THF (Tetrahydrofolate) riboswitch aptamer: a 101-nucleotide sequence from Ligilactobacillus ruminis. The family's consensus secondary structure is taken from published work.

[Rfam]
RNA sequence: ACAGGGGUAGGAAGUCCUGCGUCACGGGCUGACGGAACGGAAUGUGAACGUCAGCAGAAAGGUCCUGUCAUUGGCCUGCGUGGUUCUUCCGCAUUCACCAU
Dot-bracket structure: (..((....(((((..(((.((....(.((((((.....[[[[[....)))))))....((((..........)))))).)))..))))).]]]]].)).)
Numbered sequence: 001a002c003a004g005g006g007g008u009a010g011g012a013a014g015u016c017c018u019g020c021g022u023c024a025c026g027g028g029c030u031g032a033c034g035g036a037a038c039g040g041a042a043u044g045u046g047a048a049c050g051u052c053a054g055c056a057g058a059a060a061g062g063u064c065c066u067g068u069c070a071u072u073g074g075c076c077u078g079c080g081u082g083g084u085u086c087u088u089c090c091g092c093a094u095u096c097a098c099c100a101u
Stems, first nucleotide, its partner, number of pairs: 001101001004099002010090005017083003021079002027055001029054006040096005060077004
Taxonomically the source falls in Ligilactobacillus ruminis (Bacteria, Bacillati, Bacilli, Lactobacillales).
A reference for the family is Ames et al. (2010), "A eubacterial riboswitch class that senses the coenzyme tetrahydrofolate", Chem Biol.
Tetrahydrofolate (THF) riboswitch was first reported for Ames et al. as an RNA motif in 5' untranslated (5'-UTR)regions of folate transport and biosynthesis genes in Firmicutes genomes.